[Rfam]
The record is a 222-nucleotide sequence from Kouleothrix aurantiaca, which matches "HNH endonuclease-associated RNA and ORF (HEARO) RNA" in Rfam. A reference for the family is Weinberg et al. (2009), "Exceptional structured noncoding RNAs revealed by bacterial metagenome analysis", Nature. By type it is a non-coding RNA gene.

RNA sequence: GUCAGUCACCACCCCGUAAAUGAGGUGGCUUGAUCUUCGGGUCUAGCCCGGACUGACCAGGAUCCAGGGCGGGCAACCGCCCUCCGCCCGGAAGGUCAUGAUACGUCGGGCUGCGACAGCGCCAGGCCCGACCGCUAUCGCUCGUGAGAACGUCGUCCUGGGGCAAGGGACGCAUCUGGCGAGCACGACAAGCCUUCCGCGCAUGGUCGAGGCGCACAUUAC
Dot-bracket structure: (((((((..(.((.((....)).))..)((.((((....)))).))....)))))))...((((.(((((........)))))..((.((((((((....((..((((((((......[[[[[.))))))))....)).((((((.(((...(.(((((.......))))))..))).)))))).......)))))))).))..))))..]]]]].......